[Rfam]
The family of this 71-nucleotide RNA sequence from Cavia porcellus is "Small nucleolar RNA SNORD110". A reference for the family is Galardi et al. (2002), "Purified box C/D snoRNPs are able to reproduce site-specific 2'-O-methylation of target RNA in vitro", Mol Cell Biol. By type it is a C/D-box small nucleolar RNA. The pairing is the family consensus, mapped onto this sequence. Lineage of the source: Eukaryota > Bilateria > Sarcopterygii > Caviidae > Cavia.
RNA sequence: UUGCAGUGAUGACUUGAGAAAUCUGUCAAUCCCCUGAAUGUAAUCACUGAUGUCUCCAUGUCUCUGAGCAA
Numbered sequence: 001u002u003g004c005a006g007u008g009a010u011g012a013c014u015u016g017a018g019a020a021a022u023c024u025g026u027c028a029a030u031c032c033c034c035u036g037a038a039u040g041u042a043a044u045c046a047c048u049g050a051u052g053u054c055u056c057c058a059u060g061u062c063u064c065u066g067a068g069c070a071a
Base pairs, nucleotide, nucleotide: 001071002070003069004068